[Rfam]
RNA: Bacteroidales-1 6S-Bacteroidales RNA suggested
Organism: Duncaniella freteri
RNA sequence: CACCACAUCAGAGACGAUUGGGAAACUCUUCAAUUUAUUCUGAAAUACCGAGACAAGCUUAGCCGGCUAAUGGCGGGCCUCAUCCCUUAGGGGAGGCAAGCAUUGCCCGGAGGAUUACAAAGGACGGCUCAGCACUCAAAUCCUGUCAUUCGGAGUUUCAUCAUCUUGCUCUGGUGUGGCUUUUUUA
Numbered sequence: 001c002a003c004c005a006c007a008u009c010a011g012a013g014a015c016g017a018u019u020g021g022g023a024a025a026c027u028c029u030u031c032a033a034u035u036u037a038u039u040c041u042g043a044a045a046u047a048c049c050g051a052g053a054c055a056a057g058c059u060u061a062g063c064c065g066g067c068u069a070a071u072g073g074c075g076g077g078c079c080u081c082a083u084c085c086c087u088u089a090g091g092g093g094a095g096g097c098a099a100g101c102a103u104u105g106c107c108c109g110g111a112g113g114a115u116u117a118c119a120a121a122g123g124a125c126g127g128c129u130c131a132g133c134a135c136u137c138a139a140a141u142c143c144u145g146u147c148a149u150u151c152g153g154a155g156u157u158u159c160a161u162c163a164u165c166u167u168g169c170u171c172u173g174g175u176g177u178g179g180c181u182u183u184u185u186u187a
Stems, first nucleotide, its partner, number of pairs: 057133003061129005067123002071119002078113004084093003100106002